[Rfam]
RNA sequence: GUGAAGGAUCUGUAAAGCUCAGGAGGGAUAGCGCCGCCAGCCGGGUCGAUCAUCAUCAUGUCGUUUCGAUGAUGUUAUGGUCUCAUCACUGGCGCUAUCCAUCCUGAGUUUUAGAGCUCCUUCGU
Numbered sequence: 001g002u003g004a005a006g007g008a009u010c011u012g013u014a015a016a017g018c019u020c021a022g023g024a025g026g027g028a029u030a031g032c033g034c035c036g037c038c039a040g041c042c043g044g045g046u047c048g049a050u051c052a053u054c055a056u057c058a059u060g061u062c063g064u065u066u067c068g069a070u071g072a073u074g075u076u077a078u079g080g081u082c083u084c085a086u087c088a089c090u091g092g093c094g095c096u097a098u099c100c101a102u103c104c105u106g107a108g109u110u111u112u113a114g115a116g117c118u119c120c121u122u123c124g125u
Base pairs, nucleotide, nucleotide: 010116016110017109018108019107020106021105022104023103024102026100027099028098029097030096031095032094033093034092035091
Dot-bracket structure: .........(.....(((((((((.((((((((((.......................................................)))))))))).))))))))).....).........

About this RNA:
The record is a 125-nucleotide sequence from Punica granatum, which matches "MIR390 microRNA precursor family" in Rfam. A search with the family's covariance model found it, with a score of 88 bits. A reference for the family is Gustafson et al. (2005), "ASRP: the Arabidopsis Small RNA Project Database", Nucleic Acids Res. The source organism's lineage runs through Eukaryota, Streptophyta, Streptophytina, Myrtales and Punica. Rfam links the family to the GO terms miRNA-mediated post-transcriptional gene silencing and RISC complex. Rfam 15.1 lists 649 matches to the family in 206 species.